[Rfam]
RNA: MIR7504 microRNA precursor family
Organism: Gossypium anomalum
RNA sequence: AAUGGGAGAAUGACAAAUUAUAUUUUUCUUCCUAAUUUUUAGCAUUUUUAGUUGGAUUUGAAUUUUUUCAAGAGGAAAAGUUGAAAAUCAGGAGGAAAACUCUGAUUUGUCAUCCUCCCAUU
Numbered sequence: 001a002a003u004g005g006g007a008g009a010a011u012g013a014c015a016a017a018u019u020a021u022a023u024u025u026u027u028c029u030u031c032c033u034a035a036u037u038u039u040u041a042g043c044a045u046u047u048u049u050a051g052u053u054g055g056a057u058u059u060g061a062a063u064u065u066u067u068u069c070a071a072g073a074g075g076a077a078a079a080g081u082u083g084a085a086a087a088u089c090a091g092g093a094g095g096a097a098a099a100c101u102c103u104g105a106u107u108u109g110u111c112a113u114c115c116u117c118c119c120a121u122u
Base pairs, nucleotide, nucleotide: 001122002121003120004119005118006117007116008115010113011112012111013110014109015108016107017106018105019104020103022101024099025098026097027096029094030093031092032091033090035088036087037086038085039084041082042081045078046077047076048075